[Rfam]
RNA: azaaromatic riboswitch aptamer (yjdF RNA)
Organism: Anaerosporobacter mobilis
RNA sequence: AAUUACAAAGAUAAAAACAUAUUCCGGUUGGUAGUCCGGAAGCAGCUUUAGCUGUCAGUAACCUGCCUCCUUGGUUGUCCGUUCUUUGGUAUCCGAUA
Numbered sequence: 001a002a003u004u005a006c007a008a009a010g011a012u013a014a015a016a017a018c019a020u021a022u023u024c025c026g027g028u029u030g031g032u033a034g035u036c037c038g039g040a041a042g043c044a045g046c047u048u049u050a051g052c053u054g055u056c057a058g059u060a061a062c063c064u065g066c067c068u069c070c071u072u073g074g075u076u077g078u079c080c081g082u083u084c085u086u087u088g089g090u091a092u093c094c095g096a097u098a
Stems, first nucleotide, its partner, number of pairs: 006088006022041006042055005065075003